Rfam assigns this 121-nucleotide sequence from Ruminococcaceae bacterium FB2012 to the family "FMN riboswitch aptamer (RFN element)". Pairs were carried over by alignment from the consensus structure, which is taken from published work. The literature on the family includes a 2002 paper in Nucleic Acids Res by Vitreschak et al., "Regulation of riboflavin biosynthesis and transport genes in bacteria by transcriptional and translational attenuation".

[Rfam]
RNA sequence: CAAUAGUUUCAGGGGUGGUGAAAGUCCACACCGGAGGUGACAGUCCUCGACCGCUCGAAAGAGCGCUGAUUCGGUGAAAUUCCGAAACCGACGGUUAAAGUCCGGACGGAAGAAACGACGG
Numbered sequence: 001c002a003a004u005a006g007u008u009u010c011a012g013g014g015g016u017g018g019u020g021a022a023a024g025u026c027c028a029c030a031c032c033g034g035a036g037g038u039g040a041c042a043g044u045c046c047u048c049g050a051c052c053g054c055u056c057g058a059a060a061g062a063g064c065g066c067u068g069a070u071u072c073g074g075u076g077a078a079a080u081u082c083c084g085a086a087a088c089c090g091a092c093g094g095u096u097a098a099a100g101u102c103c104g105g106a107c108g109g110a111a112g113a114a115a116c117g118a119c120g121g
Stems, first nucleotide, its partner, number of pairs: 004118001006116005016028003030101002032090002034048004043088002052065002070086005092104003

The RFN element is a highly conserved domain that is found frequently in the 5'-untranslated regions of prokaryotic mRNAs that encode for flavin mononucleotide (FMN) biosynthesis and transport proteins. This element is a metabolite-dependent riboswitch that directly binds FMN in the absence of proteins. In Bacillus subtilis, the riboswitch most likely controls gene expression by causing premature transcription termination within the 5' untranslated region of the ribDEAHT operon and precluding access to the ribosome-binding site of ypaA mRNA.The FMN riboswitch structure, reported in present an FMN-bound six-stem junction, adopts a butterfly-like scaffold, stapled together by opposingly directed but nearly identically folded peripheral domains.